About this RNA:
Shown here is a 103-nucleotide RNA sequence from Oceanobacillus picturae, a member of the family "SAM riboswitch aptamer (S box leader)".
[Rfam]
RNA sequence: UUCUUAUCCAGAGAGGUGGAGGGACUGGCCCAUUGAUACCUCGGCAACGUGCUUUUAAAGCAACGUGCCAAUUCCAACAGACGAAGGUCUGUAAAGAUAAGAG
Numbered sequence: 001u002u003c004u005u006a007u008c009c010a011g012a013g014a015g016g017u018g019g020a021g022g023g024a025c026u027g028g029c030c031c032a033u034u035g036a037u038a039c040c041u042c043g044g045c046a047a048c049g050u051g052c053u054u055u056u057a058a059a060g061c062a063a064c065g066u067g068c069c070a071a072u073u074c075c076a077a078c079a080g081a082c083g084a085a086g087g088u089c090u091g092u093a094a095a096g097a098u099a100a101g102a103g
Stems, first nucleotide, its partner, number of pairs: 001103008013042005021031003026076003043069004048065002050062004073095001078091005
The family's consensus secondary structure is taken from published work.